[Rfam]
This 102-nucleotide RNA from Oxobacter pfennigii belongs to the Rfam family "Purine riboswitch aptamer".
The organism belongs to Oxobacter, within Bacteria.
The base pairs follow the family's consensus structure, which is taken from published work.
Rfam's curators write: Riboswitches are metabolite binding domains within certain messenger RNAs that serve as precision sensors for their corresponding targets.

RNA sequence: AAAUAUUAUGUGAAUGCUAUCCAUAUAAUCCUGAUAAUAUGGUUCGGGAGUCUCUACUGAGUAACCGUAAAUUACUCGUCUAUGGGUGUCCAAGUGUUUUUU
Numbered sequence: 001a002a003a004u005a006u007u008a009u010g011u012g013a014a015u016g017c018u019a020u021c022c023a024u025a026u027a028a029u030c031c032u033g034a035u036a037a038u039a040u041g042g043u044u045c046g047g048g049a050g051u052c053u054c055u056a057c058u059g060a061g062u063a064a065c066c067g068u069a070a071a072u073u074a075c076u077c078g079u080c081u082a083u084g085g086g087u088g089u090c091c092a093a094g095u096g097u098u099u100u101u102u
Stems, first nucleotide, its partner, number of pairs: 018088008029049006058078007